[Rfam]
RNA: mir-24 microRNA precursor family
RNA sequence: UACUCCUGUGCCUACUGAACUGGAUUCAGUGUGUUUUUUUUGCAAAACUGGCUCAGUCCAGCAGGAACAAGAG
Numbered sequence: 001u002a003c004u005c006c007u008g009u010g011c012c013u014a015c016u017g018a019a020c021u022g023g024a025u026u027c028a029g030u031g032u033g034u035u036u037u038u039u040u041u042g043c044a045a046a047a048c049u050g051g052c053u054c055a056g057u058c059c060a061g062c063a064g065g066a067a068c069a070a071g072a073g
Stems, first nucleotide, its partner, number of pairs: 003073003008068002011065003015061003019057005026051005